[Rfam]
RNA sequence: AAAACGGCUCCUUUUGGAGCCACCACAAAUAAUAAAAGUUAUGAUC
Numbered sequence: 001a002a003a004a005c006g007g008c009u010c011c012u013u014u015u016g017g018a019g020c021c022a023c024c025a026c027a028a029a030u031a032a033u034a035a036a037a038g039u040u041a042u043g044a045u046c
Stems, first nucleotide, its partner, number of pairs: 006021006
This 46-nucleotide sequence from Desmophyllum pertusum belongs to the Rfam family "Histone 3' UTR stem-loop". Rfam's curators write: The mRNAs of metazoan histone genes lack a poly-A tail. 3' end processing occurs at a site between a highly conserved stem-loop (modelled by this family) and a purine rich region around 20 nts downstream (the histone downstream element, or HDE). The stem-loop is bound by a 31 kDa stem-loop binding protein (SLBP - also termed the histone hairpin binding protein, or HBP). Together with U7 snRNA binding of the HDE, SLBP binding nucleate s the formation of the processing complex. The histone 3' UTR stem-loop is also involved in nucleocytoplasmic transport of the mRNA, and in stability regulation and translation efficiency in the cytoplasm. The organism belongs to Desmophyllum, within Eukaryota. It is annotated as a cis-regulatory element. It scores 35 bits against the family's covariance model. A reference for the family is Williams and Marzluff (1995), "The sequence of the stem and flanking sequences at the 3' end of histone mRNA are critical determinants for the binding of the stem-loop binding protein", Nucleic Acids Res.